[Rfam]
RNA sequence: GAGAAAAAGCAGAGGCACCCGCUUCUCGCCUAGGAAAUGUAGGUUUCCGGGCAGAAAUUAUGAUAUUAAUUCUAAUUAAAACGGAUUAUUAAGACGGGCAUUCUGAUUUUUUGGAUGUCCGUUUUCUGCAUUUUCU
Numbered sequence: 001g002a003g004a005a006a007a008a009g010c011a012g013a014g015g016c017a018c019c020c021g022c023u024u025c026u027c028g029c030c031u032a033g034g035a036a037a038u039g040u041a042g043g044u045u046u047c048c049g050g051g052c053a054g055a056a057a058u059u060a061u062g063a064u065a066u067u068a069a070u071u072c073u074a075a076u077u078a079a080a081a082c083g084g085a086u087u088a089u090u091a092a093g094a095c096g097g098g099c100a101u102u103c104u105g106a107u108u109u110u111u112u113g114g115a116u117g118u119c120c121g122u123u124u125u126c127u128g129c130a131u132u133u134u135c136u
Stems, first nucleotide, its partner, number of pairs: 011026006028052003034047005093123010

Description
Ribosomal protein L20 leader: a 136-nucleotide RNA sequence from Ligilactobacillus salivarius. Gene Ontology term of the family: regulation of gene expression. Pairs were carried over by alignment from the consensus structure, which was predicted with CMfinder.